[Rfam]
RNA sequence: GCGUUUUUAUAGGGCUUUCUAUUUUGUGUUGUUUUCUUUAUGCGACAAAAUAGAAAUGCUGAUAAAAACGUCU
Numbered sequence: 001g002c003g004u005u006u007u008u009a010u011a012g013g014g015c016u017u018u019c020u021a022u023u024u025u026g027u028g029u030u031g032u033u034u035u036c037u038u039u040a041u042g043c044g045a046c047a048a049a050a051u052a053g054a055a056a057u058g059c060u061g062a063u064a065a066a067a068a069c070g071u072c073u
Stems, first nucleotide, its partner, number of pairs: 001071006008064003012060002016056003020052008030042003